The record is a 75-nucleotide RNA from Eubacterium ruminantium, which matches "RAGATH-18 RNA" in Rfam.
It is annotated as a small RNA.
Rfam's curators write: Actinobacteria, Firmicutes, Fusobacteria, Thermotogae (1 example).
The match comes from Rfam's covariance-model search (75 bits).
RNA sequence: ACUGUGGAGUGUACAAGAACUUGUGAGUAGUAUAUCCGUUUAUAGAUUACUAAAGCAUACACGUUGAAGCAGUAA
Numbered sequence: 001a002c003u004g005u006g007g008a009g010u011g012u013a014c015a016a017g018a019a020c021u022u023g024u025g026a027g028u029a030g031u032a033u034a035u036c037c038g039u040u041u042a043u044a045g046a047u048u049a050c051u052a053a054a055g056c057a058u059a060c061a062c063g064u065u066g067a068a069g070c071a072g073u074a075a
Base pairs, nucleotide, nucleotide: 001073002072003071004070005069009062010061011060012059013058022057023056024055030050031049032048035046036045